A member of the RNA family "7SK RNA" from Hypocryptadius cinnamomeus, 303 nucleotides long.
Nucleotides: 303
Stems, first nucleotide, its partner, number of pairs: 001106003005101003009097003014091001018089001025085002028082006035073002037069002042066003047060001114167002117163002120136003125132001138158002144155003197257002202251002205247002208244003218240005280303005285296004
Number, partner (000 for none) and nucleotide at each position: 001106g002105g003104a004000u005101g006100u007099g008000a009097g010096g011095g012000c013000a014091g015000u016000c017000u018089g019000g020000c021000u022000g023000c024000a025085a026084c027000c028082u029081c030080u031079g032078u033077c034000g035073c036072c037069c038068c039000a040000c041000u042066g043065g044064u045000g046000a047060c048000c049000a050000g051000g052000c053000u054000g055000a056000u057000u058000g059000a060047g061000c062000u063000g064044a065043c066042c067000c068038g069037g070000c071000u072036g073035g074000c075000c076000c077033g078032g079031u080030g081029g082028g083000u084026g085025u086000c087000c088000a089018c090000u091014u092000c093000c094000u095011c096010c097009u098000c099007c100006a101005u102000g103000c104003u105002c106001c107000a108000u109000g110000u111000g112000c113000a114167u115166c116000c117163c118162u119000a120136c121135c122134a123000a124000a125132g126000c127000u128000g129000c130000a131000c132125c133000c134122u135121g136120g137000c138158u139157g140000a141000g142000g143000a144155g145154g146153g147000u148000g149000a150000u151000c152000u153146u154145c155144c156000u157139c158138a159000u160000g161000g162118a163117g164000a165000u166115g167114g168000u169000g170000c171000u172000g173000u174000u175000c176000a177000u178000c179000g180000g181000u182000c183000a184000a185000a186000g187000g188000u189000g190000u191000a192000c193000a194000g195000u196000a197257g198256c199000c200000c201000u202251g203250c204000c205247c206246c207000c208244u209243g210242a211000c212000a213000g214000a215000a216000c217000c218240a219239a220238c221237c222236u223000c224000c225000a226000a227000a228000c229000a230000a231000g232000c233000u234000c235000a236222a237221g238220g239219u240218u241000u242210u243209u244208a245000u246206g247205g248000c249000u250203g251202u252000u253000u254000a255000u256198g257197c258000u259000g260000u261000a262000a263000c264000u265000g266000c267000a268000g269000u270000u271000u272000c273000u274000c275000u276000a277000a278000u279000g280303a281302u282301u283300u284299u285296g286295c287294a288293g289000u290000g291000a292000c293288c294287u295286g296285c297000c298000a299284g300283a301282g302281a303280u
On this family, see Blencowe, Curr Biol 2002: "Transcription: surprising role for an elusive small nuclear RNA".
A search with the family's covariance model found it, with a score of 91 bits.
By type it is a non-coding RNA gene.
The organism belongs to Hypocryptadius, within Eukaryota.
Clan: 7SK clan.